A member of the RNA family "DUF805b RNA", 36 nucleotides long. By type it is a cis-regulatory element. It is one of the family's seed sequences.
RNA sequence: ACGGCAGAUUCUGAAAAGCCGGUAACAGAGUAAGAG
Numbered sequence: 001a002c003g004g005c006a007g008a009u010u011c012u013g014a015a016a017a018g019c020c021g022g023u024a025a026c027a028g029a030g031u032a033a034g035a036g
Stems, first nucleotide, its partner, number of pairs: 002021004010035003